[Rfam]
RNA sequence: AGCCGAUAAUACUUAACCAUCCGCGAGGGUGGGGCGGAAAGCCUACAGGGUCUCGACUAGAGACAGCCGGGUUGCCGAA
Numbered sequence: 001a002g003c004c005g006a007u008a009a010u011a012c013u014u015a016a017c018c019a020u021c022c023g024c025g026a027g028g029g030u031g032g033g034g035c036g037g038a039a040a041g042c043c044u045a046c047a048g049g050g051u052c053u054c055g056a057c058u059a060g061a062g063a064c065a066g067c068c069g070g071g072u073u074g075c076c077g078a079a
Stems, first nucleotide, its partner, number of pairs: 012037002017032006040073004048068002050064005

The family of this 79-nucleotide RNA from Geobacter sp. OR-1 is "c-di-GMP-I riboswitch aptamer". From the family's description: GEMM was predicted in a large-scale screen for bacterial structured RNA regulatory elements. Genes associated with GEMM are involved in a diverse array of functions, including chemotaxis regulation, signal transduction, secretion and chitin. Lineage of the source: Bacteria > Thermodesulfobacteriota > Geobacterales > Geobacteraceae > Geobacter. Pairs were carried over by alignment from the consensus structure, which is taken from published work.